[Rfam]
RNA sequence: UGAUGACAAUUCUCCGGAAUCUCUGUACUUCAUUGAUGAUCUCCUUUGAACCCUUUGCUGAUGACUGUUAAUGCUGAAAUUGUUCAUU
Numbered sequence: 001u002g003a004u005g006a007c008a009a010u011u012c013u014c015c016g017g018a019a020u021c022u023c024u025g026u027a028c029u030u031c032a033u034u035g036a037u038g039a040u041c042u043c044c045u046u047u048g049a050a051c052c053c054u055u056u057g058c059u060g061a062u063g064a065c066u067g068u069u070a071a072u073g074c075u076g077a078a079a080u081u082g083u084u085c086a087u088u
Stems, first nucleotide, its partner, number of pairs: 002088005
Shown here is an 88-nucleotide RNA from Onychostoma macrolepis, a member of the family "Small nucleolar RNA MBII-202". Taxonomically the source falls in Onychostoma (Eukaryota, Bilateria, Craniata, Cypriniformes). Its family is annotated with nucleolus and RNA processing in the Gene Ontology. A reference for the family is Huttenhofer et al. (2001), "RNomics: an experimental approach that identifies 201 candidates for novel, small, non-messenger RNAs in mouse", EMBO J. The family's RNA type in Rfam is C/D-box small nucleolar RNA. The base pairs follow the family's consensus structure, which was predicted with PFOLD.